[Rfam]
RNA: Flavo-1 RNA
RNA sequence: UUAUCGCGUUAAGGAUAGCAAUGGAAAUCCUUUUUUUAUACUGAACUUGUUUCAGUAUCUCUUUUAAAAAAGCAUUUAGCUUAAAUUGAAAGAUGCUGAAAUUAAUUCAGCACAAGAAAAAAGAUUGCAAUGAAUAGCCUGUUAAAAC
Numbered sequence: 001u002u003a004u005c006g007c008g009u010u011a012a013g014g015a016u017a018g019c020a021a022u023g024g025a026a027a028u029c030c031u032u033u034u035u036u037u038a039u040a041c042u043g044a045a046c047u048u049g050u051u052u053c054a055g056u057a058u059c060u061c062u063u064u065u066a067a068a069a070a071a072g073c074a075u076u077u078a079g080c081u082u083a084a085a086u087u088g089a090a091a092g093a094u095g096c097u098g099a100a101a102u103u104a105a106u107u108c109a110g111c112a113c114a115a116g117a118a119a120a121a122a123g124a125u126u127g128c129a130a131u132g133a134a135u136a137g138c139c140u141g142u143u144a145a146a147a148c
Stems, first nucleotide, its partner, number of pairs: 012140003016136002021131002026126004032121006039114001